[Rfam]
The family of this 83-nucleotide sequence from Amborella trichopoda is "MIR473 microRNA precursor family". The base pairs follow the family's consensus structure, which was predicted with WAR. Gene Ontology terms of the family: RISC complex and miRNA-mediated post-transcriptional gene silencing. The literature on the family includes a 2005 paper in Plant Cell by Lu et al., "Novel and mechanical stress-responsive MicroRNAs in Populus trichocarpa that are absent from Arabidopsis". The organism belongs to Amborella, within Eukaryota.

RNA sequence: AAUCCUCACUCUCCCUCAAGGGCUUCUAAUCCUCACCUUUGAGAGGGGGAAGUAUAGAAGCCUUUGGGGAGGGUGAAUGCUAG
Numbered sequence: 001a002a003u004c005c006u007c008a009c010u011c012u013c014c015c016u017c018a019a020g021g022g023c024u025u026c027u028a029a030u031c032c033u034c035a036c037c038u039u040u041g042a043g044a045g046g047g048g049g050a051a052g053u054a055u056a057g058a059a060g061c062c063u064u065u066g067g068g069g070a071g072g073g074u075g076a077a078u079g080c081u082a083g
Base pairs, nucleotide, nucleotide: 006076007075008074009073010072011071012070013069014068015067017066018065019064020063021062022061023060024059025058026057